The record is a 150-nucleotide RNA sequence from Sphaerisporangium rubeum, which matches "c-di-AMP riboswitch aptamer (ydaO/yuaA leader)" in Rfam. Taxonomically the source falls in Sphaerisporangium (Bacteria, Actinomycetota, Actinomycetes, Streptosporangiales).

[Rfam]
Nucleotides: 150
Base pairs, nucleotide, nucleotide: 001032002031003030004029005028033129034128035127036126037125038124043054044053055114056113057112063089065087066086067085068084069083092108093107094106095105
Number, partner (000 for none) and nucleotide at each position: 001032u002031c003030c004029c005028a006000g007000a008000u009000c010000g011000g012000g013000c014000c015000c016000u017000u018000g019000c020000g021000g022000g023000g024000c025000c026000u027000g028005u029004g030003g031002g032001a033129g034128c035127c036126g037125g038124g039000g040000a041000c042000c043054c044053a045000a046000g047000c048000a049000a050000c051000c052000c053044u054043g055114g056113g057112g058000u059000g060000a061000a062000u063089c064000g065087g066086c067085g068084g069083g070000a071000a072000a073000g074000c075000g076000u077000u078000g079000c080000g081000g082000a083069c084068c085067c086066g087065c088000g089063g090000u091000a092108g093107g094106g095105c096000g097000a098000c099000u100000c101000u102000c103000u104000a105095g106094c107093c108092c109000g110000a111000a112057c113056c114055c115000g116000u117000c118000a119000g120000c121000u122000a123000a124038c125037c126036c127035g128034g129033u130000a131000g132000g133000c134000g135000u136000c137000a138000c139000a140000g141000g142000a143000g144000a145000g146000g147000a148000g149000a150000c